[Rfam]
RNA sequence: GGAGUCGUCCGGACGAUCGCUGGCCCCAGGGCCGGAGGAAAGUCCGAACACCACAGGGCAGGGUGCUCCGUAACGCGGAGUCGCGGCGACGCGAAGGAAAGUGCAACAGAAAGUAUACCGCCCCGUCUCGGGGUAAGGGUGAAACGGUGCGGUAAGAGCGCACCAGUUUUCCGGGUGACCGGAAAAGCUAUGUAAACCCCACCCGGUGCAAAACCAAAUAGAGGAGCGUCUGAGGGCGGCCCGUCCGAGUUCCCGGGUAGGUUGCAGGAGGUGCCGGGCAACCGGCAUCCGAAGAUGAAUGAUCGUCGCCUUCCCCGGCGGUGGCUUACACCGGCAGGGGAGGAACAGAAUUCGGCUUAUGGACGGCUCCGGCC
Numbered sequence: 001g002g003a004g005u006c007g008u009c010c011g012g013a014c015g016a017u018c019g020c021u022g023g024c025c026c027c028a029g030g031g032c033c034g035g036a037g038g039a040a041a042g043u044c045c046g047a048a049c050a051c052c053a054c055a056g057g058g059c060a061g062g063g064u065g066c067u068c069c070g071u072a073a074c075g076c077g078g079a080g081u082c083g084c085g086g087c088g089a090c091g092c093g094a095a096g097g098a099a100a101g102u103g104c105a106a107c108a109g110a111a112a113g114u115a116u117a118c119c120g121c122c123c124c125g126u127c128u129c130g131g132g133g134u135a136a137g138g139g140u141g142a143a144a145c146g147g148u149g150c151g152g153u154a155a156g157a158g159c160g161c162a163c164c165a166g167u168u169u170u171c172c173g174g175g176u177g178a179c180c181g182g183a184a185a186a187g188c189u190a191u192g193u194a195a196a197c198c199c200c201a202c203c204c205g206g207u208g209c210a211a212a213a214c215c216a217a218a219u220a221g222a223g224g225a226g227c228g229u230c231u232g233a234g235g236g237c238g239g240c241c242c243g244u245c246c247g248a249g250u251u252c253c254c255g256g257g258u259a260g261g262u263u264g265c266a267g268g269a270g271g272u273g274c275c276g277g278g279c280a281a282c283c284g285g286c287a288u289c290c291g292a293a294g295a296u297g298a299a300u301g302a303u304c305g306u307c308g309c310c311u312u313c314c315c316c317g318g319c320g321g322u323g324g325c326u327u328a329c330a331c332c333g334g335c336a337g338g339g340g341a342g343g344a345a346c347a348g349a350a351u352u353c354g355g356c357u358u359a360u361g362g363a364c365g366g367c368u369c370c371g372g373c374c
Stems, first nucleotide, its partner, number of pairs: 001370011012307007020035006040358003044355005049208004056242004061204005066080005081095001082093004096199002101197002103193003118138002120134006146164006166188001167186008212263004223253005234246004270289008

Rfam assigns this 374-nucleotide sequence from Desulfonema ishimotonii to the family "Bacterial RNase P class A". The family's RNA type in Rfam is ribozyme. It scores 302 bits against the family's covariance model. NCBI's taxonomy places the organism under Bacteria, Pseudomonadati, Thermodesulfobacteriota, Desulfobacteria, Desulfonema. Rfam links the family to the GO terms tRNA processing, dimeric ribonuclease P complex and ribonuclease P activity.